The record is a 75-nucleotide sequence from Haemonchus placei, which matches "mir-5928 microRNA precursor family" in Rfam. The family's consensus secondary structure was predicted with RNAalifold. Lineage of the source: Eukaryota > Bilateria > Protostomia > Strongyloidea > Haemonchus.
RNA sequence: GGCACAAGCUUGAAGUGGAGUAGUUAAGUAGGGUCAGCCGAUCCCACUAAUCGACUCUACUUCAAAUUCGGGCCC
Numbered sequence: 001g002g003c004a005c006a007a008g009c010u011u012g013a014a015g016u017g018g019a020g021u022a023g024u025u026a027a028g029u030a031g032g033g034u035c036a037g038c039c040g041a042u043c044c045c046a047c048u049a050a051u052c053g054a055c056u057c058u059a060c061u062u063c064a065a066a067u068u069c070g071g072g073c074c075c
Base pairs, nucleotide, nucleotide: 001074002073003072005070007068008067011064012063013062014061015060016059017058018057019056020055021054023052025050027048028047029046032043033042034041035040